[Rfam]
RNA: mir-310 microRNA precursor family
Organism: Lucilia cuprina
Nucleotides: 087
Base pairs, nucleotide, nucleotide: 001087002086003085004084005083006082007081010078013075014074016072017071020068021067024065027063029061030060031059032058
Number, partner (000 for none) and nucleotide at each position: 001087u002086u003085a004084u005083u006082u007081g008000a009000a010078g011000a012000c013075c014074g015000u016072g017071g018000c019000u020068u021067g022000u023000u024065g025000c026000a027063a028000u029061u030060a031059u032058g033000u034000u035000u036000u037000a038000u039000u040000u041000u042000u043000a044000a045000a046000a047000u048000u049000u050000a051000u052000u053000u054000u055000u056000a057000u058032c059031a060030u061029a062000u063027u064000g065024c066000a067021c068020a069000a070000u071017c072016c073000c074014c075013g076000g077000c078010c079000u080000g081007u082006a083005a084004a085003u086002a087001a